A member of the RNA family "Small nucleolar RNA SNORA44" from Peromyscus maniculatus, 130 nucleotides long. Its Rfam clan is "SNORA44 clan". On this family, see Huttenhofer et al., EMBO J 2001: "RNomics: an experimental approach that identifies 201 candidates for novel, small, non-messenger RNAs in mouse". The organism belongs to Peromyscus maniculatus, within Eukaryota.
RNA sequence: CAGCAUGUUUCCAAGGGCUAUGGCUGGUUGUGGCCAUGGGGUCUCCAACUGCAUGCCAGAGAAACUGGAAAGACUUUGACAGCCCAGGCCAGCACAGUGCCUGCAGCUGCCACUCGGCUUUCCUAUAUGU
Numbered sequence: 001c002a003g004c005a006u007g008u009u010u011c012c013a014a015g016g017g018c019u020a021u022g023g024c025u026g027g028u029u030g031u032g033g034c035c036a037u038g039g040g041g042u043c044u045c046c047a048a049c050u051g052c053a054u055g056c057c058a059g060a061g062a063a064a065c066u067g068g069a070a071a072g073a074c075u076u077u078g079a080c081a082g083c084c085c086a087g088g089c090c091a092g093c094a095c096a097g098u099g100c101c102u103g104c105a106g107c108u109g110c111c112a113c114u115c116g117g118c119u120u121u122c123c124u125a126u127a128u129g130u
Stems, first nucleotide, its partner, number of pairs: 011039002016035007067123006082110002085103004
Dot-bracket structure: ..........((...(((((((......)))))))..))...........................((((((.........((.((((...........)))).....)).......)))))).......